A member of the RNA family "Small nucleolar RNA SNORA13" from Xiphorhynchus elegans, 131 nucleotides long. Lineage of the source: Eukaryota > Metazoa > Archosauria > Theropoda > Xiphorhynchus. Rfam links the family to the GO terms nucleolus and RNA processing.

RNA sequence: GGCCUUUGUGUUGCCCAUUCAUUCCUGUCCAGAAUGAAUGUGGUGUCAAAAAAGGCAAACAGGAAUUCUUGCUCAAACUUGUAAGGAGCUGGUUAUUUAACUUUUUCCUCCCUGUUUUUGCAAGGACAAAA
Numbered sequence: 001g002g003c004c005u006u007u008g009u010g011u012u013g014c015c016c017a018u019u020c021a022u023u024c025c026u027g028u029c030c031a032g033a034a035u036g037a038a039u040g041u042g043g044u045g046u047c048a049a050a051a052a053a054g055g056c057a058a059a060c061a062g063g064a065a066u067u068c069u070u071g072c073u074c075a076a077a078c079u080u081g082u083a084a085g086g087a088g089c090u091g092g093u094u095a096u097u098u099a100a101c102u103u104u105u106u107c108c109u110c111c112c113u114g115u116u117u118u119u120g121c122a123a124g125g126a127c128a129a130a131a
Stems, first nucleotide, its partner, number of pairs: 002056006009048002012045004016040008068124005075117003082114002085111003088107001092101001
ACA13 is a member of the H/ACA class of snoRNA that guide the sites of modification of uridines to pseudouridines. The base pairs follow the family's consensus structure, which was predicted with CMfinder. It scores 87 bits against the family's covariance model. Rfam 15.1 lists 1,034 matches to the family in 605 species.